Source information:
Rfam assigns this 147-nucleotide RNA from Ureibacillus terrenus to the family "Ribosomal protein L20 leader". The match comes from Rfam's covariance-model search (62 bits). Gene Ontology term of the family: regulation of gene expression. The source organism's lineage runs through Bacteria, Bacillati, Bacilli, Caryophanaceae and Ureibacillus. On this family, see Zengel and Lindahl, Prog Nucleic Acid Res Mol Biol 1994: "Diverse mechanisms for regulating ribosomal protein synthesis in Escherichia coli". Rfam classes the family as a cis-regulatory leader.
[Rfam]
RNA sequence: GGUUGAAAGCAGAGGCUGCCCGCUUCUCACCUGUUCGACGCAUUGGGGCUGUUGACAGGUUUGGAAAAUGUGAAAAGUGAAUACGCUUUUUUUGCGUAUUUUUCGGCGGGCGGACAUCUUCUGAAAUGUCCGUCUUUUUUUGUGGAC
Dot-bracket structure: ..........((((((.....)))))).(((.....(((((......)).)))....)))................................................(((((((((........))))))))).............
Numbered sequence: 001g002g003u004u005g006a007a008a009g010c011a012g013a014g015g016c017u018g019c020c021c022g023c024u025u026c027u028c029a030c031c032u033g034u035u036c037g038a039c040g041c042a043u044u045g046g047g048g049c050u051g052u053u054g055a056c057a058g059g060u061u062u063g064g065a066a067a068a069u070g071u072g073a074a075a076a077g078u079g080a081a082u083a084c085g086c087u088u089u090u091u092u093u094g095c096g097u098a099u100u101u102u103u104c105g106g107c108g109g110g111c112g113g114a115c116a117u118c119u120u121c122u123g124a125a126a127u128g129u130c131c132g133u134c135u136u137u138u139u140u141u142g143u144g145g146a147c
Stems, first nucleotide, its partner, number of pairs: 011027006029060003037053003040049002109134009